[Rfam]
The family of this 126-nucleotide sequence from Chara braunii is "U5 spliceosomal RNA". A search with the family's covariance model found it, with a score of 45 bits.
RNA sequence: AGCUGCCUUCCCACCUCAAAACAGACGUACUAUUCUCUAUUCGCCUUUUACGAAAGAAAGAGUACCGUGGGCUGAGCACACUGAGCAGCUUACAACAAUUUUAUUAUUAUUAUUAUUAUUAUUAUU
Numbered sequence: 001a002g003c004u005g006c007c008u009u010c011c012c013a014c015c016u017c018a019a020a021a022c023a024g025a026c027g028u029a030c031u032a033u034u035c036u037c038u039a040u041u042c043g044c045c046u047u048u049u050a051c052g053a054a055a056g057a058a059a060g061a062g063u064a065c066c067g068u069g070g071g072c073u074g075a076g077c078a079c080a081c082u083g084a085g086c087a088g089c090u091u092a093c094a095a096c097a098a099u100u101u102u103a104u105u106a107u108u109a110u111u112a113u114u115a116u117u118a119u120u121a122u123u124a125u126u
Base pairs, nucleotide, nucleotide: 003088004087005086006085008078010076012074013073015071016070017069018068031064032063033062034061035060036059040058041057109125110124112122113121
About this RNA:
Rfam classes the family as a spliceosomal small nuclear RNA. The family's consensus secondary structure is taken from published work. Gene Ontology terms of the family: spliceosomal tri-snRNP complex assembly and U5 snRNP. Lineage of the source: Eukaryota > Viridiplantae > Streptophytina > Characeae > Chara.